[Rfam]
RNA sequence: UUGUGUGUGAGGAGCAAGUUAAAACUAGAAAGCACCAAGAGUGGAAACAAGGCAACACUCUUAGGUGCUUUUUAAU
Number, nucleotide and partner (000 for none) at each position: 001u000002u000003g000004u000005g000006u000007g000008u000009g000010a000011g000012g000013a000014g000015c000016a000017a000018g000019u000020u000021a000022a000023a000024a000025c000026u000027a000028g000029a071030a070031a069032g068033c067034a066035c065036c000037a000038a061039g060040a000041g058042u057043g056044g000045a000046a000047a000048c000049a000050a000051g000052g000053c000054a000055a000056c043057a042058c041059u000060c039061u038062u000063a000064g000065g035066u034067g033068c032069u031070u030071u029072u000073u000074a000075a000076u000
RNA: Cyano-1 RNA